[Rfam]
The record is a 102-nucleotide RNA from Camphora micrantha, which matches "Small nucleolar RNA R64/Z200 family" in Rfam. Lineage of the source: Eukaryota > Tracheophyta > Magnoliopsida > Mesangiospermae > Camphora. The family's consensus secondary structure was predicted with PFOLD. On this family, see Galardi et al., Mol Cell Biol 2002: "Purified box C/D snoRNPs are able to reproduce site-specific 2'-O-methylation of target RNA in vitro". It scores 50 bits against the family's covariance model.
RNA sequence: UCUCUCCUGUGAUGAGUUAUGGUUUUUUUUUUUUGAACACAUGUCAGACUUCAGAGAUUCUCAGGAAUCGAGGAGAAGAAAAAAACAGUUUCUGAGCACAGA
Numbered sequence: 001u002c003u004c005u006c007c008u009g010u011g012a013u014g015a016g017u018u019a020u021g022g023u024u025u026u027u028u029u030u031u032u033u034u035g036a037a038c039a040c041a042u043g044u045c046a047g048a049c050u051u052c053a054g055a056g057a058u059u060c061u062c063a064g065g066a067a068u069c070g071a072g073g074a075g076a077a078g079a080a081a082a083a084a085a086c087a088g089u090u091u092c093u094g095a096g097c098a099c100a101g102a
Stems, first nucleotide, its partner, number of pairs: 001102003005098001007096001056069004